The record is a 36-nucleotide RNA sequence from Kordia antarctica, which matches "DUF805b RNA" in Rfam. Rfam classes the family as a cis-regulatory element. The match comes from Rfam's covariance-model search (36 bits).
RNA sequence: AAGGUGAACCCUGAAAAACCUCAAAAAGAGUAAGGA
Numbered sequence: 001a002a003g004g005u006g007a008a009c010c011c012u013g014a015a016a017a018a019c020c021u022c023a024a025a026a027a028g029a030g031u032a033a034g035g036a
Stems, first nucleotide, its partner, number of pairs: 002021004010035003